The record is a 126-nucleotide sequence from Microcebus murinus, which matches "Small nucleolar RNA SNORA27" in Rfam. Lineage of the source: Eukaryota > Euteleostomi > Theria > Boreoeutheria > Microcebus. ACA27 is a member of the H/ACA class of snoRNA that guide the sites of modification of uridines to pseudouridines. Its family is annotated with nucleolus and RNA processing in the Gene Ontology. The family is grouped with related families in Rfam's "SNORA27 clan". The family's RNA type in Rfam is H/ACA-box small nucleolar RNA. The family has 24 seed sequences and 819 matches in Rfam 15.1. A search with the family's covariance model found it, with a score of 142 bits.
[Rfam]
RNA sequence: GACCCCAUUUUCAUUUUGCCAAUUGGACUUAUGUCUUUAUUGGUCAUUCAAGUGGGGCAAAGGACACAUCCAUUUAAAACUCAGGCAAACUGGUGUUUGUCUUGUAUCCUGUCAAAGGAAACAAAU
Number, nucleotide and partner (000 for none) at each position: 001g000002a000003c000004c000005c000006c000007a000008u000009u000010u000011u000012c000013a000014u000015u000016u000017u000018g000019c000020c000021a000022a000023u000024u000025g000026g000027a000028c000029u000030u000031a000032u059033g058034u057035c056036u055037u000038u000039a000040u051041u050042g049043g048044u000045c000046a000047u000048u043049c042050a041051a040052g000053u000054g000055g036056g035057g034058c033059a032060a000061a000062g000063g000064a000065c000066a000067c000068a000069u119070c118071c117072a000073u115074u114075u000076a000077a000078a000079a000080c000081u000082c104083a102084g101085g100086c099087a098088a097089a096090c095091u000092g000093g000094u000095g090096u089097u088098u087099g086100u085101c084102u083103u000104g082105u000106a000107u000108c000109c000110u000111g000112u000113c000114a074115a073116a000117g071118g070119a069120a000121a000122c000123a000124a000125a000126u000